[Rfam]
RNA: mir-19 microRNA precursor family
RNA sequence: ACUUACGAUUAGUUUUGCAGGUUUGCAUUUCAGCAUAUACAUGAAAUAUGGCUGUGCAAAUCCAUGCAAAACUGAUCGUGAUU
Numbered sequence: 001a002c003u004u005a006c007g008a009u010u011a012g013u014u015u016u017g018c019a020g021g022u023u024u025g026c027a028u029u030u031c032a033g034c035a036u037a038u039a040c041a042u043g044a045a046a047u048a049u050g051g052c053u054g055u056g057c058a059a060a061u062c063c064a065u066g067c068a069a070a071a072c073u074g075a076u077c078g079u080g081a082u083u
Stems, first nucleotide, its partner, number of pairs: 003081017020063002022060007032053003